[Rfam]
RNA: Archaeal large subunit ribosomal RNA, nucleotides 2764 to 3025
RNA sequence: GGUUGCCUGAGGGGAAGGUGGUUCCAGUACGAGAGGAACGAACCGCCGGCGCCUCUGGUCUACCGGUUAUCCGACAGGGUAUUGCCGGGCAGCCACGCGCCAUGAUCAUAAAGGCUGAAAGCAUCUAAGCCUGAGGGAUCCCCUGAAAAUAGGCAGCCAUUAAUCCCACGGGUAAAAGACCCGUUUGAUGGGGUGGGGGUGUGAGCUUCGAGGCCCCAUCCGGGGCCGAGUUGUUCAGCCCGCCACUCCCAACGGGAGAUAC
Number, nucleotide and partner (000 for none) at each position: 001g158002g157003u156004u155005g154006c153007c152008u151009g000010a000011g144012g143013g142014g141015a000016a000017g047018g046019u045020g044021g043022u042023u041024c040025c000026a000027g000028u000029a000030c000031g000032a000033g000034a000035g000036g000037a000038a000039c000040g024041a023042a022043c021044c020045g019046c018047c017048g101049g100050c099051g098052c097053c000054u000055c000056u095057g094058g093059u000060c000061u000062a000063c088064c087065g086066g085067u084068u081069a080070u079071c078072c077073g000074a000075c000076a000077g072078g071079g070080u069081a068082u000083u000084g067085c066086c065087g064088g063089g000090c000091a000092g000093c058094c057095a056096c000097g052098c051099g050100c049101c048102a000103u000104g000105a139106u138107c137108a000109u000110a000111a000112a132113g131114g130115c129116u128117g000118a000119a000120a000121g000122c000123a000124u000125c000126u000127a000128a116129g115130c114131c113132u112133g000134a000135g000136g000137g107138a106139u105140c000141c014142c013143c012144u011145g000146a000147a000148a000149a000150u000151a008152g007153g006154c005155a004156g003157c002158c001159a000160u000161u000162a000163a000164u257165c256166c255167c254168a184169c183170g182171g181172g180173u000174a000175a000176a000177a000178g000179a000180c172181c171182c170183g169184u168185u000186u000187g000188a000189u251190g250191g249192g247193g246194u245195g244196g243197g241198g240199g239200u000201g000202u000203g000204a000205g234206c233207u000208u000209c230210g000211a000212g227213g226214c225215c224216c223217c000218a000219u000220c000221c000222g000223g216224g215225g214226c213227c212228g000229a000230g209231u000232u000233g206234u205235u000236c000237a000238g000239c199240c198241c197242g000243c196244c195245a194246c193247u192248c000249c191250c190251a189252a000253c000254g167255g166256g165257a164258g000259a000260u000261a000262c000